Description:
A member of the RNA family "Eukaryotic large subunit ribosomal RNA" from Ascogregarina taiwanensis, 480 nucleotides of a longer RNA. The base pairs follow the family's consensus structure, which is taken from published work. It is one of the family's seed sequences. Clan: LSU clan.

RNA sequence: UAGGCCAAAGUAGAUAAGGGAAGUCGGCAAAUUAGAUCCGUAACUUUGGAAAAAGGAUUGGCUCUGAGGGCUGGGUAUUAAGAGACUUGCACUAAUUUCAUCGUUGGGUUCAAGGCUACUUGAAGUUCCGGCGGAUAGUGGAACUGUUCACGACGUUGUCUGCAGUGUUUGUAUCUUCUUACAUGAAACAGCUAACUCAGAACUGAAGCGGACACGUGGAAUCCGACUGUUUAAUUAAAACAAAGCAUUGCGAUGGCCUUGAUUGGCGUUGACGUAAUGUGAUUUCUGCCCAGUGCUCUGAAUGUCAAUGUGGUGAAAUUCAACUAAGCGCGGGUAAACGGCGGGAGUAACUAUGACUCUCUUAAGGUAGCCAAAUGCCUCGUCAUCUAAUUAGUGACGCGCAUGAAUGGAUUAACGAGAUUCCUACUGUCCCUAACUACUAUCUAGCGAAACCACAGCCAAGGGAACGGGCUUGGAUAA
Numbered sequence: 001u002a003g004g005c006c007a008a009a010g011u012a013g014a015u016a017a018g019g020g021a022a023g024u025c026g027g028c029a030a031a032u033u034a035g036a037u038c039c040g041u042a043a044c045u046u047u048g049g050a051a052a053a054a055g056g057a058u059u060g061g062c063u064c065u066g067a068g069g070g071c072u073g074g075g076u077a078u079u080a081a082g083a084g085a086c087u088u089g090c091a092c093u094a095a096u097u098u099c100a101u102c103g104u105u106g107g108g109u110u111c112a113a114g115g116c117u118a119c120u121u122g123a124a125g126u127u128c129c130g131g132c133g134g135a136u137a138g139u140g141g142a143a144c145u146g147u148u149c150a151c152g153a154c155g156u157u158g159u160c161u162g163c164a165g166u167g168u169u170u171g172u173a174u175c176u177u178c179u180u181a182c183a184u185g186a187a188a189c190a191g192c193u194a195a196c197u198c199a200g201a202a203c204u205g206a207a208g209c210g211g212a213c214a215c216g217u218g219g220a221a222u223c224c225g226a227c228u229g230u231u232u233a234a235u236u237a238a239a240a241c242a243a244a245g246c247a248u249u250g251c252g253a254u255g256g257c258c259u260u261g262a263u264u265g266g267c268g269u270u271g272a273c274g275u276a277a278u279g280u281g282a283u284u285u286c287u288g289c290c291c292a293g294u295g296c297u298c299u300g301a302a303u304g305u306c307a308a309u310g311u312g313g314u315g316a317a318a319u320u321c322a323a324c325u326a327a328g329c330g331c332g333g334g335u336a337a338a339c340g341g342c343g344g345g346a347g348u349a350a351c352u353a354u355g356a357c358u359c360u361c362u363u364a365a366g367g368u369a370g371c372c373a374a375a376u377g378c379c380u381c382g383u384c385a386u387c388u389a390a391u392u393a394g395u396g397a398c399g400c401g402c403a404u405g406a407a408u409g410g411a412u413u414a415a416c417g418a419g420a421u422u423c424c425u426a427c428u429g430u431c432c433c434u435a436a437c438u439a440c441u442a443u444c445u446a447g448c449g450a451a452a453c454c455a456c457a458g459c460c461a462a463g464g465g466a467a468c469g470g471g472c473u474u475g476g477a478u479a480a
Stems, first nucleotide, its partner, number of pairs: 001446004009441005015435002018432003035059005044049001060204002063201006069193005075182003080177004084154001086152001088150002091147001098138001100136001101134008109124006205209001218424006224417002228242003245280008256267003284411003288342003293339002295335004300331001303330003311322003343361006362366001382398005459476005